[Rfam]
RNA sequence: GCACUCUUUCUAGGUUGACACAAUCCUGUAAGUGACAAACACACAGAAGGGUAAAGGAAGUUUCCAUAAAACCCAAAAAGAUACUGUAAACCUUCUCUUUGGACCCUUUCUGGAGCCACAGCU
Numbered sequence: 001g002c003a004c005u006c007u008u009u010c011u012a013g014g015u016u017g018a019c020a021c022a023a024u025c026c027u028g029u030a031a032g033u034g035a036c037a038a039a040c041a042c043a044c045a046g047a048a049g050g051g052u053a054a055a056g057g058a059a060g061u062u063u064c065c066a067u068a069a070a071a072c073c074c075a076a077a078a079a080g081a082u083a084c085u086g087u088a089a090a091c092c093u094u095c096u097c098u099u100u101g102g103a104c105c106c107u108u109u110c111u112g113g114a115g116c117c118a119c120a121g122c123u
Stems, first nucleotide, its partner, number of pairs: 003052007014040003021032001060117001062115005073102005079096001080094002085090001